A member of the RNA family "Fungal signal recognition particle RNA" from Colletotrichum plurivorum, 276 nucleotides long.

RNA sequence: CGGCUGUAAUGGUCAAGUGGUUGAAGGCUUUCAUUAUUCUUCUCCCGCUGCUUCAUACACAUUGGAACCCUCUAACGGCGCCCAGUGCGAAUGCCGCGGUGGUCACACACUCGCAUGGGUAACCUGCGAUUGCUGCUGUGACCCUAAGCAAUGAAGAUGACGCUUGAGGGAGGUUUCACUCUGCAGAGGCAUCUUCACCGUCGCAUGGCGUGCUGGAUUACGAUCGUUAGGGGCUUGAGGUAGUGGUUGGAGAUGGAGAUGUCGACUCCAAUUUUU
Numbered sequence: 001c002g003g004c005u006g007u008a009a010u011g012g013u014c015a016a017g018u019g020g021u022u023g024a025a026g027g028c029u030u031u032c033a034u035u036a037u038u039c040u041u042c043u044c045c046c047g048c049u050g051c052u053u054c055a056u057a058c059a060c061a062u063u064g065g066a067a068c069c070c071u072c073u074a075a076c077g078g079c080g081c082c083c084a085g086u087g088c089g090a091a092u093g094c095c096g097c098g099g100u101g102g103u104c105a106c107a108c109a110c111u112c113g114c115a116u117g118g119g120u121a122a123c124c125u126g127c128g129a130u131u132g133c134u135g136c137u138g139u140g141a142c143c144c145u146a147a148g149c150a151a152u153g154a155a156g157a158u159g160a161c162g163c164u165u166g167a168g169g170g171a172g173g174u175u176u177c178a179c180u181c182u183g184c185a186g187a188g189g190c191a192u193c194u195u196c197a198c199c200g201u202c203g204c205a206u207g208g209c210g211u212g213c214u215g216g217a218u219u220a221c222g223a224u225c226g227u228u229a230g231g232g233g234c235u236u237g238a239g240g241u242a243g244u245g246g247u248u249g250g251a252g253a254u255g256g257a258g259a260u261g262u263c264g265a266c267u268c269c270a271a272u273u274u275u276u
Stems, first nucleotide, its partner, number of pairs: 002014003019273005025267001027263001029261001037258001038256001039252004045246008069233003073229005079222002082216008091206004096201004101143001103141004107134001108132002111129005117124002144148001152197007163188003170181003

Annotation: The literature on the family includes a 2000 paper in Science by Batey et al., "Crystal structure of the ribonucleoprotein core of the signal recognition particle". Its Rfam clan is "SRP clan". NCBI's taxonomy places the organism under Eukaryota, Fungi, saccharomyceta, sordariomyceta, Colletotrichum orchidearum species complex.